[Rfam]
RNA sequence: GUUGCAAAUUUGAGGCCACAGCAGAAGUGCUCACAGUGCGGCUGUGUCAGAUUCCAGCAAAUCUGCAAAUUCUGCU
Numbered sequence: 001g002u003u004g005c006a007a008a009u010u011u012g013a014g015g016c017c018a019c020a021g022c023a024g025a026a027g028u029g030c031u032c033a034c035a036g037u038g039c040g041g042c043u044g045u046g047u048c049a050g051a052u053u054c055c056a057g058c059a060a061a062u063c064u065g066c067a068a069a070u071u072c073u074g075c076u
Stems, first nucleotide, its partner, number of pairs: 014043004020076007027039003048065006

Mammalian CPEB3 ribozyme: a 76-nucleotide RNA sequence from Crocodylus porosus.